[Rfam]
RNA: tRNA
Organism: Shimia thalassica
RNA sequence: GCCCGCGUGGUGGAACGGUAGACACAGGGGACUUAAAAUCCCUAGCUAGGAAUAGCGUGCCGGUUCGAAUCCGGCCGCGGGUA
Numbered sequence: 001g002c003c004c005g006c007g008u009g010g011u012g013g014a015a016c017g018g019u020a021g022a023c024a025c026a027g028g029g030g031a032c033u034u035a036a037a038a039u040c041c042c043u044a045g046c047u048a049g050g051a052a053u054a055g056c057g058u059g060c061c062g063g064u065u066c067g068a069a070u071c072c073g074g075c076c077g078c079g080g081g082u083a
Stems, first nucleotide, its partner, number of pairs: 001082007010025003027043005059075005